[Rfam]
RNA: c-di-AMP riboswitch aptamer (ydaO/yuaA leader)
Organism: Spelaeicoccus albus
RNA sequence: CGGACGGAAAAGCCGAACGCUGCCGUUCCAACCGGUCGAUUAGUGAUGACGGCAGCGGCGGGGAACCCAACUUGACGGCAUGGCCGCCAACGGGGUGAAGCGGACGAGUUCCGCCGGGCAACUCCAGCCCGAACCCGACAGCUAACUUCGCAGGCUUCGGAGAGCACUAUG
Number, nucleotide and partner (000 for none) at each position: 001c000002g000003g000004a000005c000006g000007g000008a000009a000010a000011a156012g155013c154014c153015g000016a000017a000018c057019g056020c055021u054022g053023c052024c051025g050026u049027u048028c000029c000030a000031a000032c000033c000034g000035g000036u000037c000038g000039a000040u000041u000042a000043g000044u000045g000046a000047u000048g027049a026050c025051g024052g023053c022054a021055g020056c019057g018058g151059c150060g149061g148062g147063g146064a000065a000066c000067c000068c092069a000070a000071c000072u000073u000074g000075a000076c000077g000078g000079c000080a000081u000082g000083g000084c000085c000086g000087c000088c000089a000090a000091c000092g068093g136094g135095g134096u000097g000098a000099a000100g000101c113102g112103g111104a110105c000106g000107a000108g000109u000110u104111c103112c102113g101114c000115c000116g130117g129118g128119c127120a000121a000122c000123u000124c000125c000126a000127g119128c118129c117130c116131g000132a000133a000134c095135c094136c093137g000138a000139c000140a000141g000142c000143u000144a000145a000146c063147u062148u061149c060150g059151c058152a000153g014154g013155c012156u011157u000158c000159g000160g000161a000162g000163a000164g000165c000166a000167c000168u000169a000170u000171g000